[Rfam]
Shown here is a 45-nucleotide sequence from Streptomyces tagetis, a member of the family "Guanidine-II riboswitch aptamer (mini-ykkC)". It scores 35 bits against the family's covariance model.
RNA sequence: CCGGCGGGACGACCCGCCGGUACGUUGCGAGCAGGGACGACCCAG
Numbered sequence: 001c002c003g004g005c006g007g008g009a010c011g012a013c014c015c016g017c018c019g020g021u022a023c024g025u026u027g028c029g030a031g032c033a034g035g036g037a038c039g040a041c042c043c044a045g
Stems, first nucleotide, its partner, number of pairs: 001020008032045001034043003